[Rfam]
RNA sequence: GUGCAUACCAGUAGACCUCAUCUGGCUUUGCCUCGUGGCCAGUUGAGGGGGACAGUGUAUGCAAGAGGAAAUGUGGAGUGACUGCCAGAUCUAUAGGCUGCCAAAUUAAUGGCUUGGCUGGACUGCAUUACUUCCAUAGAC
Numbered sequence: 001g002u003g004c005a006u007a008c009c010a011g012u013a014g015a016c017c018u019c020a021u022c023u024g025g026c027u028u029u030g031c032c033u034c035g036u037g038g039c040c041a042g043u044u045g046a047g048g049g050g051g052a053c054a055g056u057g058u059a060u061g062c063a064a065g066a067g068g069a070a071a072u073g074u075g076g077a078g079u080g081a082c083u084g085c086c087a088g089a090u091c092u093a094u095a096g097g098c099u100g101c102c103a104a105a106u107u108a109a110u111g112g113c114u115u116g117g118c119u120g121g122a123c124u125g126c127a128u129u130a131c132u133u134c135c136a137u138a139g140a141c
Stems, first nucleotide, its partner, number of pairs: 003062006016048005022042003075134004083127003098116001100113002
RNA: Small nucleolar RNA SNORA58
Organism: Phascolarctos cinereus